[Rfam]
mir-14 microRNA precursor family: a 59-nucleotide RNA from Leptidea sinapis. The base pairs follow the family's consensus structure, which was predicted with RNAalifold. It scores 60 bits against the family's covariance model. A reference for the family is Li et al. (2009), "Direct sequencing and expression analysis of a large number of miRNAs in Aedes aegypti and a multi-species survey of novel mosquito miRNAs", BMC Genomics.

Nucleotides: 059
Stems, first nucleotide, its partner, number of pairs: 001059003005055004010050004018042004024037003
Number, partner (000 for none) and nucleotide at each position: 001059u002058g003057u004000c005055g006054g007053a008052g009000g010050g011049a012048g013047a014000a015000u016000u017000u018042g019041g020040c021039u022000a023000g024037g025036c026035u027000u028000a029000u030000u031000u032000a033000a034000u035026a036025g037024u038000c039021a040020g041019u042018c043000u044000u045000u046000u047013u048012c049011u050010c051000u052008c053007u054006c055005c056000u057003a058002u059001a